[Rfam]
RNA: Staphylococcus sRNA sau-13
RNA sequence: CCAGUGAUAUCAUUAGGGUGUGCAGCUUUAUCAAUUGAAGCACCCUCAACCAUUAAAAAGAAUCCUUUAUUAUUUUUACUUAAUUUAUUAAGUGCACUGUUUUG
Numbered sequence: 001c002c003a004g005u006g007a008u009a010u011c012a013u014u015a016g017g018g019u020g021u022g023c024a025g026c027u028u029u030a031u032c033a034a035u036u037g038a039a040g041c042a043c044c045c046u047c048a049a050c051c052a053u054u055a056a057a058a059a060g061a062a063u064c065c066u067u068u069a070u071u072a073u074u075u076u077u078a079c080u081u082a083a084u085u086u087a088u089u090a091a092g093u094g095c096a097c098u099g100u101u102u103u104g
Base pairs, nucleotide, nucleotide: 004076006074007073008072009071013049014048016046017045019042020041021040027034055070057068058067059066060065084094